[Rfam]
RNA sequence: AUUAACUAACGAGGAUGGGUGAAAUUCCCUACCGGUGGUAAAGUCCACAAGCCUUUGGGGUUGAUCUGGUGUAAUUCCAGUACCGACAGUACAGUCUGGAAGGGAGUUAGGUGUU
Numbered sequence: 001a002u003u004a005a006c007u008a009a010c011g012a013g014g015a016u017g018g019g020u021g022a023a024a025u026u027c028c029c030u031a032c033c034g035g036u037g038g039u040a041a042a043g044u045c046c047a048c049a050a051g052c053c054u055u056u057g058g059g060g061u062u063g064a065u066c067u068g069g070u071g072u073a074a075u076u077c078c079a080g081u082a083c084c085g086a087c088a089g090u091a092c093a094g095u096c097u098g099g100a101a102g103g104g105a106g107u108u109a110g111g112u113g114u115u
Stems, first nucleotide, its partner, number of pairs: 003113002006110005017029003031095002033085002035048004043083002051061003066080004087098003
FMN riboswitch aptamer (RFN element): a 115-nucleotide sequence from Halanaerobium sp. DL-01. The base pairs follow the family's consensus structure, which is taken from published work. It scores 100 bits against the family's covariance model. The organism belongs to Halanaerobium, within Bacteria.